[Rfam]
RNA sequence: UCUAUCAGCCGGCUGUCGUUCCGGGGAAGGUCGGAAAGGAAAGUCCGGACAGCAAAGGGCAACACACCGGUUAAUGGCCGGCUUCCCGAUUAAAUUGGGAAAGAGACAGUGCCACAGAAAAUAACUGUCCUGGUAGCCUGCUAUCGGGAUGAGGGUGAAAAUGUGAGGUAAGAGCUCACGGCUUUGUUCGGUAACGAUCAAAGCGGGUAAACCUUGUGUGCUGUAAUGCCACGUAUAUUAACGUUUGAGGGCGGCUCGUCCAAAUUUCCGGUUCACCGGAAUGCGUUGAAGGGUAGGCAGCAAGAUUGUGUUAGUAAUAACACAGCCAGAUAAAUGAUGGCCGUCCCGGUGAAUAGCCGGGAUAACAGAAUCCGGCUUAUGGCUGAUAGAUUUU
Numbered sequence: 001u002c003u004a005u006c007a008g009c010c011g012g013c014u015g016u017c018g019u020u021c022c023g024g025g026g027a028a029g030g031u032c033g034g035a036a037a038g039g040a041a042a043g044u045c046c047g048g049a050c051a052g053c054a055a056a057g058g059g060c061a062a063c064a065c066a067c068c069g070g071u072u073a074a075u076g077g078c079c080g081g082c083u084u085c086c087c088g089a090u091u092a093a094a095u096u097g098g099g100a101a102a103g104a105g106a107c108a109g110u111g112c113c114a115c116a117g118a119a120a121a122u123a124a125c126u127g128u129c130c131u132g133g134u135a136g137c138c139u140g141c142u143a144u145c146g147g148g149a150u151g152a153g154g155g156u157g158a159a160a161a162u163g164u165g166a167g168g169u170a171a172g173a174g175c176u177c178a179c180g181g182c183u184u185u186g187u188u189c190g191g192u193a194a195c196g197a198u199c200a201a202a203g204c205g206g207g208u209a210a211a212c213c214u215u216g217u218g219u220g221c222u223g224u225a226a227u228g229c230c231a232c233g234u235a236u237a238u239u240a241a242c243g244u245u246u247g248a249g250g251g252c253g254g255c256u257c258g259u260c261c262a263a264a265u266u267u268c269c270g271g272u273u274c275a276c277c278g279g280a281a282u283g284c285g286u287u288g289a290a291g292g293g294u295a296g297g298c299a300g301c302a303a304g305a306u307u308g309u310g311u312u313a314g315u316a317a318u319a320a321c322a323c324a325g326c327c328a329g330a331u332a333a334a335u336g337a338u339g340g341c342c343g344u345c346c347c348g349g350u351g352a353a354u355a356g357c358c359g360g361g362a363u364a365a366c367a368g369a370a371u372c373c374g375g376c377u378u379a380u381g382g383c384u385g386a387u388a389g390a391u392u393u394u
Base pairs, nucleotide, nucleotide: 001390002389003388004387005386006385007384008383009382010381011342012341013340014339015338016337017336019036020035021034022033023032024031041378042377043376045375046374047373048372049371050223051222052221053220058277059276062219063218064217065216066215067081068080069079070078071077082103083101084100085099086098087097088096089095090094104214105213109212110211111208112207113206125154126153127150128149129148130147131146132145133144134143135142162180163179164178165177166176167175183202184201185200186199188197189196190195227299228298229297230296238289239288240287241286242285270282272280273279306325307324308323309322310321311320312319313318